[Rfam]
About this RNA
The family of this 93-nucleotide RNA sequence is "Rhodo-rpoB RNA".
RNA sequence: AGGUCGGGAGGCCCCCGGUGGGACGGGCGCCAGGAAUUGACCGAAACGAUCCGCUCUCACGCGGGGUCCGGCCGUCGCCCAACGGCUAGGACC
Numbered sequence: 001a002g003g004u005c006g007g008g009a010g011g012c013c014c015c016c017g018g019u020g021g022g023a024c025g026g027g028c029g030c031c032a033g034g035a036a037u038u039g040a041c042c043g044a045a046a047c048g049a050u051c052c053g054c055u056c057u058c059a060c061g062c063g064g065g066g067u068c069c070g071g072c073c074g075u076c077g078c079c080c081a082a083c084g085g086c087u088a089g090g091a092c093c
Stems, first nucleotide, its partner, number of pairs: 002042004010031003014027004065093005070087005
It is annotated as a cis-regulatory element. The base pairs follow the family's consensus structure, which is taken from published work.